[Rfam]
Nucleotides: 091
Stems, first nucleotide, its partner, number of pairs: 002091007
Number, partner (000 for none) and nucleotide at each position: 001000a002091g003090g004089g005088c006087a007086u008085c009000a010000a011000u012000g013000a014000u015000g016000a017000g018000a019000u020000g021000a022000u023000u024000a025000a026000a027000u028000u029000g030000u031000u032000a033000u034000c035000c036000u037000u038000g039000c040000a041000c042000u043000u044000u045000g046000a047000u048000u049000g050000u051000c052000a053000g054000u055000g056000a057000a058000g059000a060000a061000a062000c063000a064000a065000a066000g067000u068000g069000g070000g071000c072000g073000u074000u075000u076000u077000a078000u079000a080000u081000c082000u083000g084000a085008g086007a087006u088005g089004c090003u091002u
The family of this 91-nucleotide RNA sequence from Hibiscus syriacus is "Small nucleolar RNA snoR26". Rfam links the family to the GO terms nucleolus and RNA processing. On this family, see Brown et al., RNA 2001: "Multiple snoRNA gene clusters from Arabidopsis". The base pairs follow the family's consensus structure, which was predicted with WAR. A search with the family's covariance model found it, with a score of 86 bits. It is annotated as a C/D-box small nucleolar RNA.